[Rfam]
RNA sequence: AAGAUGGCAUCGAAAAGAUUGUCGAGCCAUACUUUUAAGAUUCUUAAUAUUUAAAAGUUUAAAACUGAAAAUAUUAAAAAGCUGCCCUGAUUUUUGAAGAACAGGGACUGCAUA
Numbered sequence: 001a002a003g004a005u006g007g008c009a010u011c012g013a014a015a016a017g018a019u020u021g022u023c024g025a026g027c028c029a030u031a032c033u034u035u036u037a038a039g040a041u042u043c044u045u046a047a048u049a050u051u052u053a054a055a056a057g058u059u060u061a062a063a064a065c066u067g068a069a070a071a072u073a074u075u076a077a078a079a080a081g082c083u084g085c086c087c088u089g090a091u092u093u094u095u096g097a098a099g100a101a102c103a104g105g106g107a108c109u110g111c112a113u114a
Stems, first nucleotide, its partner, number of pairs: 001034003004030005010025004082110001084108001085106005091101003

The record is a 114-nucleotide RNA sequence from Caldicellulosiruptor owensensis, which matches "pan motif" in Rfam. By type it is a cis-regulatory element.